The family of this 179-nucleotide RNA from Staphylococcus sp. HGB0015 is "Lysine riboswitch aptamer". The base pairs follow the family's consensus structure, which is taken from published work.
RNA sequence: UAUCACUGAUGAGGCGCAUCAAUCAUAAGUAGAUAUAUUUUAAGCGUGUCUGCAAGCACAUAUAUCGAAAGGGUGAGAUGCCGAAACAAACAGUAUUGCAGUUGCUUGUUUGUUGGAUUCUUUGGUUAAGAGCUGAGAGUCUGUCAUUAUUGUUACAAUAAUGGAGUGCAUCACUUGUA
Numbered sequence: 001u002a003u004c005a006c007u008g009a010u011g012a013g014g015c016g017c018a019u020c021a022a023u024c025a026u027a028a029g030u031a032g033a034u035a036u037a038u039u040u041u042a043a044g045c046g047u048g049u050c051u052g053c054a055a056g057c058a059c060a061u062a063u064a065u066c067g068a069a070a071g072g073g074u075g076a077g078a079u080g081c082c083g084a085a086a087c088a089a090a091c092a093g094u095a096u097u098g099c100a101g102u103u104g105c106u107u108g109u110u111u112g113u114u115g116g117a118u119u120c121u122u123u124g125g126u127u128a129a130g131a132g133c134u135g136a137g138a139g140u141c142u143g144u145c146a147u148u149a150u151u152g153u154u155a156c157a158a159u160a161a162u163g164g165a166g167u168g169c170a171u172c173a174c175u176u177g178u179a
Base pairs, nucleotide, nucleotide: 007173008172009171010170011169016081017080018079019078020077024073032066033065034064035063036062037061038060085114086113087112088111089110090109091108092107093106095103115142116141117140118139119138120137121136123135124134125133126132144164145163146162147161148160149159150158